[Rfam]
RNA sequence: AAGGGAUUCCAUUACUGACGGAUAAUGUGGGUUACCACAGGGGAAUGGAGUCUUGGAAUAAGCCGACCGUCUGGGCAGCAUCA
Numbered sequence: 001a002a003g004g005g006a007u008u009c010c011a012u013u014a015c016u017g018a019c020g021g022a023u024a025a026u027g028u029g030g031g032u033u034a035c036c037a038c039a040g041g042g043g044a045a046u047g048g049a050g051u052c053u054u055g056g057a058a059u060a061a062g063c064c065g066a067c068c069g070u071c072u073g074g075g076c077a078g079c080a081u082c083a
Base pairs, nucleotide, nucleotide: 003054004053005052006051007050008049009048010047011046012045015042016041017071018070019069020068021067027038028037029036030035062076063075064074